[Rfam]
RNA sequence: AAAGCAAGAAAAGCGCCAGAACUAUUUUCAGAUCGGUAAAGAAAAUAGUUGACGAGGUGGAGGCUAAUCGAGUGUAUUCGGCGGAUUCCUCCCGGUUGUACAUCUCAAUCGUUAUGCUUUGUUCUCAAACCAAUGAGGCAACUUGUUGUACAAAGAAGAAAGCGGGAUGACAA
Numbered sequence: 001a002a003a004g005c006a007a008g009a010a011a012a013g014c015g016c017c018a019g020a021a022c023u024a025u026u027u028u029c030a031g032a033u034c035g036g037u038a039a040a041g042a043a044a045a046u047a048g049u050u051g052a053c054g055a056g057g058u059g060g061a062g063g064c065u066a067a068u069c070g071a072g073u074g075u076a077u078u079c080g081g082c083g084g085a086u087u088c089c090u091c092c093c094g095g096u097u098g099u100a101c102a103u104c105u106c107a108a109u110c111g112u113u114a115u116g117c118u119u120u121g122u123u124c125u126c127a128a129a130c131c132a133a134u135g136a137g138g139c140a141a142c143u144u145g146u147u148g149u150a151c152a153a154a155g156a157a158g159a160a161a162g163c164g165g166g167a168u169g170a171c172a173a
Stems, first nucleotide, its partner, number of pairs: 020050008029041001059092005068081004093111006116163005122158002131148007
Dot-bracket structure: ...................((((((((.(...........).))))))))........(((((....((((......))))......)))))((((((.......))))))....(((((.((.......(((((((....)))))))........)))))))..........

Rfam assigns this 173-nucleotide RNA from Lentibacillus populi to the family "glmS glucosamine-6-phosphate activated ribozyme aptamer".
Rfam classes the family as a riboswitch.
This entry contains a glucosamine-6-phosphate activated ribozyme that is found in the mRNA for GlmS. GlmS is an enzyme that uses fructose-6-phosphate and glutamine to generate glucosamine-6-phosphate. The ribozyme catalyses self cleavage of the glmS mRNA that is thought to regulate GlmS activity.
A search with the family's covariance model found it, with a score of 110 bits.
The base pairs follow the family's consensus structure, which is taken from published work.